Description
The record is a 117-nucleotide RNA sequence from Eubacterium sp. 14-2, which matches "DUF3268 RNA" in Rfam. It is annotated as a small RNA. The organism belongs to Eubacterium, within Bacteria.
RNA sequence: GGCAGGGGCUUGCGUUCAGGCUUUCGGUACGUUUGGUAUAGCGUCAGACUUAUCCGGAGGAGGGUAAGGAACCGUUACGGAUUUUGCGCACUGAGCGAAUCCACAAUAACGCAAGCC
Numbered sequence: 001g002g003c004a005g006g007g008g009c010u011u012g013c014g015u016u017c018a019g020g021c022u023u024u025c026g027g028u029a030c031g032u033u034u035g036g037u038a039u040a041g042c043g044u045c046a047g048a049c050u051u052a053u054c055c056g057g058a059g060g061a062g063g064g065u066a067a068g069g070a071a072c073c074g075u076u077a078c079g080g081a082u083u084u085u086g087c088g089c090a091c092u093g094a095g096c097g098a099a100u101c102c103a104c105a106a107u108a109a110c111g112c113a114a115g116c117c
Base pairs, nucleotide, nucleotide: 007117008116009115010114011113012112013111014110015109016108025074026073027072028071029044030043031042032041033040049068050067051066052065053064054063055062079102080101081100084098085097086096087095
Dot-bracket structure: ......((((((((((........(((((((((......)))))....(((((((......)))))))..))))....(((..((((.......)))).))).....))))))))))